Shown here is a 449-nucleotide sequence from Stieleria marina, a member of the family "Bacterial RNase P class A".
The family's consensus secondary structure is taken from published work.
RNA sequence: GCGUGAGGGCGGGGCGAUCGCUGGUUGCGCUUGCGUGACUGGAGGAAAGUCCGGGCUCCACAGGACAGGAUGGUCGAUAACGUCGACCGGCCGAGAGGUUAGGGAUAGUGCAACAGAGAAUAGACCGCCGAACGGUCGGCUGACUGAUUCAUUUCAGCUAGUCGAUGCGUGGUAAGGCUGAAACGGUGCGGUAAGAGCGCACCAGCGGCCAAGGUGACUUGGUCGGCUUGGUAAACCCCAUCCGGAGCUAGACCAAACAGAUUGCAGUGGCCGUGUUUCGAGAGAAACGGCGUUUCGCAAGAAGCGUGGGUCACACGGGGCUGUCCGCCGCGUUACGACAAUCGGGUAGGUUGCGAUUGAGGCGACGAGCAAUCGUCGUGCACAGAUAAAUGAUCGUCGGCGAAACUUCGGUUUCGUCACAGAACCCGGCUUACAUGCCCUCCGCAGCU
Numbered sequence: 001g002c003g004u005g006a007g008g009g010c011g012g013g014g015c016g017a018u019c020g021c022u023g024g025u026u027g028c029g030c031u032u033g034c035g036u037g038a039c040u041g042g043a044g045g046a047a048a049g050u051c052c053g054g055g056c057u058c059c060a061c062a063g064g065a066c067a068g069g070a071u072g073g074u075c076g077a078u079a080a081c082g083u084c085g086a087c088c089g090g091c092c093g094a095g096a097g098g099u100u101a102g103g104g105a106u107a108g109u110g111c112a113a114c115a116g117a118g119a120a121u122a123g124a125c126c127g128c129c130g131a132a133c134g135g136u137c138g139g140c141u142g143a144c145u146g147a148u149u150c151a152u153u154u155c156a157g158c159u160a161g162u163c164g165a166u167g168c169g170u171g172g173u174a175a176g177g178c179u180g181a182a183a184c185g186g187u188g189c190g191g192u193a194a195g196a197g198c199g200c201a202c203c204a205g206c207g208g209c210c211a212a213g214g215u216g217a218c219u220u221g222g223u224c225g226g227c228u229u230g231g232u233a234a235a236c237c238c239c240a241u242c243c244g245g246a247g248c249u250a251g252a253c254c255a256a257a258c259a260g261a262u263u264g265c266a267g268u269g270g271c272c273g274u275g276u277u278u279c280g281a282g283a284g285a286a287a288c289g290g291c292g293u294u295u296c297g298c299a300a301g302a303a304g305c306g307u308g309g310g311u312c313a314c315a316c317g318g319g320g321c322u323g324u325c326c327g328c329c330g331c332g333u334u335a336c337g338a339c340a341a342u343c344g345g346g347u348a349g350g351u352u353g354c355g356a357u358u359g360a361g362g363c364g365a366c367g368a369g370c371a372a373u374c375g376u377c378g379u380g381c382a383c384a385g386a387u388a389a390a391u392g393a394u395c396g397u398c399g400g401c402g403a404a405a406c407u408u409c410g411g412u413u414u415c416g417u418c419a420c421a422g423a424a425c426c427c428g429g430c431u432u433a434c435a436u437g438c439c440c441u442c443c444g445c446a447g448c449u
Stems, first nucleotide, its partner, number of pairs: 001445003005442007012434001013398007021042009047432003051429005056247004063326004068243005073087005088102001089100004103238002108236002110232002125177002127173004133167002185203006205227001206225008251352004260343005317331001319329003361381001362379007
By type it is a ribozyme. The organism belongs to Stieleria, within Bacteria. Rfam links the family to the GO terms tRNA processing, dimeric ribonuclease P complex and ribonuclease P activity.